A member of the RNA family "Glycine riboswitch aptamer" from Labedaea rhizosphaerae, 98 nucleotides long. Rfam describes the family as follows. This family represents the bacterial glycine riboswitch. The literature on the family includes a 2017 paper in MBio by Babina et al., "In Vivo Behavior of the Tandem Glycine Riboswitch in Bacillus subtilis". Taxonomically the source falls in Labedaea (Bacteria, Bacillati, Actinomycetes, Pseudonocardiales).
[Rfam]
RNA sequence: CGACCCCGUGCGGGAGAGCCCGGUCCGGACCCCGGAUCGGCGCCGAAGGAGCAACUCCUCCCCGGAACCUCUCAGGCACAAAGGACCGUGCGGACGAG
Numbered sequence: 001c002g003a004c005c006c007c008g009u010g011c012g013g014g015a016g017a018g019c020c021c022g023g024u025c026c027g028g029a030c031c032c033c034g035g036a037u038c039g040g041c042g043c044c045g046a047a048g049g050a051g052c053a054a055c056u057c058c059u060c061c062c063c064g065g066a067a068c069c070u071c072u073c074a075g076g077c078a079c080a081a082a083g084g085a086c087c088g089u090g091c092g093g094a095c096g097a098g
Stems, first nucleotide, its partner, number of pairs: 006093008020040008042077003045073002049071003055065002